[Rfam]
RNA sequence: CGAGAGAAUGGCAAACUUGUUGAAAGACAAGGACGCAAAACUAAAGGGGCUACCGUUAAAUCUAUGCCAGCCAGUUGCCUACA
Numbered sequence: 001c002g003a004g005a006g007a008a009u010g011g012c013a014a015a016c017u018u019g020u021u022g023a024a025a026g027a028c029a030a031g032g033a034c035g036c037a038a039a040a041c042u043a044a045a046g047g048g049g050c051u052a053c054c055g056u057u058a059a060a061u062c063u064a065u066g067c068c069a070g071c072c073a074g075u076u077g078c079c080u081a082c083a
Stems, first nucleotide, its partner, number of pairs: 003080002011036002016031006034070001039076004046072002048068003
Dot-bracket structure: ..((......((...((((((....))))))..[))..((((...(((((...............))).]))))))..))...
The record is an 83-nucleotide RNA sequence from Radiobacillus deserti, which matches "c-di-GMP-I-GGC riboswitch aptamer" in Rfam. The base pairs follow the family's consensus structure, which is taken from published work. Lineage of the source: Bacteria > Bacillati > Bacillota > Caryophanales > Radiobacillus. A search with the family's covariance model found it, with a score of 61 bits.